RNA sequence: ACCCAUACUCUAGGCCACAGAAGAAGCACUCAUGGUGCAGCUCUGUCAGAUCCCAAUAGAUCUGCGAAUUCUGCU
Numbered sequence: 001a002c003c004c005a006u007a008c009u010c011u012a013g014g015c016c017a018c019a020g021a022a023g024a025a026g027c028a029c030u031c032a033u034g035g036u037g038c039a040g041c042u043c044u045g046u047c048a049g050a051u052c053c054c055a056a057u058a059g060a061u062c063u064g065c066g067a068a069u070u071c072u073g074c075u
Stems, first nucleotide, its partner, number of pairs: 013042003019075002022072004026038003047064006
Dot-bracket structure: ............[[[...((.(((((((.......))).]]]....((((((......))))))....)))).))
The family of this 75-nucleotide RNA sequence from Alligator mississippiensis is "Mammalian CPEB3 ribozyme".
Pairs were carried over by alignment from the consensus structure, which is taken from published work.
The organism belongs to Alligator, within Eukaryota.
It scores 49 bits against the family's covariance model.